[Rfam]
RNA: putative aminoglycoside riboswitch / attI site
Organism: Microbacterium sp. C448
RNA sequence: GGAGCAGCAACGAUGUUACGCAGCAGGGCAGUCGCCCUAAAACAAAGUUAGAUGCACUAAGCACAUAAUUGCUCA
Numbered sequence: 001g002g003a004g005c006a007g008c009a010a011c012g013a014u015g016u017u018a019c020g021c022a023g024c025a026g027g028g029c030a031g032u033c034g035c036c037c038u039a040a041a042a043c044a045a046a047g048u049u050a051g052a053u054g055c056a057c058u059a060a061g062c063a064c065a066u067a068a069u070u071g072c073u074c075a
Base pairs, nucleotide, nucleotide: 004072006017008015009014020055021054024051026037027036028035029034038050039049040048060069